[Rfam]
RNA sequence: AGGACUCAAUGUAACUGGCGACAAGUGGGAAUAACCACAAUGGAGCAUUGAGGGUAACGGCCGGUCGCCUGGGCAAAGAGC
Dot-bracket structure: ....((((((((..(.[[[[[...((((......))))...)..)))))))).......(((..]]]]]..))).......
A member of the RNA family "ZMP/ZTP riboswitch aptamer (pfl RNA motif)" from Paenibacillus contaminans, 81 nucleotides long. It scores 56 bits against the family's covariance model. The organism belongs to Paenibacillus, within Bacteria.